RNA sequence: GAGCCAGAUGAUGAGUUUGUUUCUGUUAUCUCACGAUGGUCAUCUGAGACAUUCUUGUCUCUUCUGAUGGAACAAAAUACUCUGAUGGUU
Number, nucleotide and partner (000 for none) at each position: 001g090002a089003g000004c087005c000006a000007g000008a000009u000010g000011a000012u000013g000014a000015g000016u000017u000018u000019g000020u000021u000022u000023c000024u000025g000026u000027u000028a000029u000030c000031u000032c000033a000034c000035g000036a000037u000038g000039g000040u000041c000042a000043u000044c000045u000046g000047a000048g059049a058050c057051a000052u000053u000054c000055u000056u000057g050058u049059c048060u000061c000062u000063u000064c000065u000066g000067a000068u000069g000070g000071a000072a000073c000074a000075a000076a000077a000078u000079a000080c000081u000082c000083u000084g000085a000086u000087g004088g000089u002090u001

The family of this 90-nucleotide RNA from Vanilla planifolia is "Small nucleolar RNA Z161/Z228". Rfam 15.1 lists 630 matches to the family in 214 species. A search with the family's covariance model found it, with a score of 59 bits. Its family is annotated with nucleolus and RNA processing in the Gene Ontology. By type it is a C/D-box small nucleolar RNA. The family is grouped with related families in Rfam's "SNORD35 clan".